[Rfam]
RNA sequence: GUCUCCGAUGAUGAUGUAUUUUUAUACUUUCGUUCUUCUGAAGUUGUAAUGUGGAAGAACAAUUUGGAGACCUGAACUGAGGGGUU
Numbered sequence: 001g002u003c004u005c006c007g008a009u010g011a012u013g014a015u016g017u018a019u020u021u022u023u024a025u026a027c028u029u030u031c032g033u034u035c036u037u038c039u040g041a042a043g044u045u046g047u048a049a050u051g052u053g054g055a056a057g058a059a060c061a062a063u064u065u066g067g068a069g070a071c072c073u074g075a076a077c078u079g080a081g082g083g084g085u086u
Stems, first nucleotide, its partner, number of pairs: 003084004
A member of the RNA family "Small nucleolar RNA Z159/U59", 86 nucleotides long. The base pairs follow the family's consensus structure, which was predicted with PFOLD. Rfam's curators put it in the seed alignment. The family has 10 seed sequences and 1,401 matches in Rfam 15.1.